[Rfam]
RNA sequence: CGCCGCUCACGCGACUGGCGAUCAGGGGCACAAGCUGCCCCGAGGUGGGCCACCACCGGGGAGCGUGAGGCGGUUGCCAAACCGCCAUCAGCCGUUCGCCUGGGCAGCCCUG
Numbered sequence: 001c002g003c004c005g006c007u008c009a010c011g012c013g014a015c016u017g018g019c020g021a022u023c024a025g026g027g028g029c030a031c032a033a034g035c036u037g038c039c040c041c042g043a044g045g046u047g048g049g050c051c052a053c054c055a056c057c058g059g060g061g062a063g064c065g066u067g068a069g070g071c072g073g074u075u076g077c078c079a080a081a082c083c084g085c086c087a088u089c090a091g092c093c094g095u096u097c098g099c100c101u102g103g104g105c106a107g108c109c110c111u112g
Stems, first nucleotide, its partner, number of pairs: 003072001006069007015060002017100005045056004089107001091105003
Record summary:
ZMP/ZTP riboswitch aptamer (pfl RNA motif): a 112-nucleotide sequence from Pelomonas sp. Root1444. The match comes from Rfam's covariance-model search (59 bits).